Shown here is a 78-nucleotide RNA from Electrophorus electricus, a member of the family "mir-103/107 microRNA precursor family". Rfam 15.1 lists 1,982 matches to the family in 645 species. A search with the family's covariance model found it, with a score of 78 bits. From the family's description: This family consists of the mammalian microRNA (miRNA) precursors mir-103 and mir107. Animal miRNAs are transcribed as ~70nt precursors and subsequently processed by the Dicer enzyme to give a ~22nt product. In this case the mature sequence comes from the 3' arm of the precursor.
RNA sequence: CUUGUCUCUCAGCCUCUAUACGGUGCUGCCUUGUAAAAUCUGGAUCAAGCAGCAUUGUACAGGGCUAUGAGCAACCAG
Numbered sequence: 001c002u003u004g005u006c007u008c009u010c011a012g013c014c015u016c017u018a019u020a021c022g023g024u025g026c027u028g029c030c031u032u033g034u035a036a037a038a039u040c041u042g043g044a045u046c047a048a049g050c051a052g053c054a055u056u057g058u059a060c061a062g063g064g065c066u067a068u069g070a071g072c073a074a075c076c077a078g
Stems, first nucleotide, its partner, number of pairs: 014064004019059010030049004